The record is an 84-nucleotide sequence from Zizania palustris, which matches "Small nucleolar RNA Z199" in Rfam. A reference for the family is Chen et al. (2003), "The high diversity of snoRNAs in plants: identification and comparative study of 120 snoRNA genes from Oryza sativa", Nucleic Acids Res. Rfam classes the family as a C/D-box small nucleolar RNA. snoZ199 is a C/D box small nucleolar RNA, which acts as a methylation guide RNA for sites on 18S and 25S rRNA. Rice snoZ199 is reported to be homologous to Arabidopsis snoR13. Rfam links the family to the GO terms nucleolus and RNA processing. Pairs were carried over by alignment from the consensus structure, which was predicted with PFOLD. The family has 17 seed sequences and 953 matches in Rfam 15.1.
RNA sequence: GGGUCAUCUGAUGAUGAUAAACUGCAACAAUAUGAUGGAAUUCUACUCUGUGAUUCCUACUAAGUAUUUAAGUCUCUGAUGAUC
Dot-bracket structure: ((.(((..............................(((.......)))..............................)))))